[Rfam]
RNA sequence: CCAGUAACAACAUCCUGGUGCUGCUGAGUGUUUCUGCUGAACUCCAGCAUCAGUGAUUUUGUUGCUGG
Numbered sequence: 001c002c003a004g005u006a007a008c009a010a011c012a013u014c015c016u017g018g019u020g021c022u023g024c025u026g027a028g029u030g031u032u033u034c035u036g037c038u039g040a041a042c043u044c045c046a047g048c049a050u051c052a053g054u055g056a057u058u059u060u061g062u063u064g065c066u067g068g
Stems, first nucleotide, its partner, number of pairs: 006063005012057003015053009
RNA: mir-338 microRNA precursor family
Organism: Denticeps clupeoides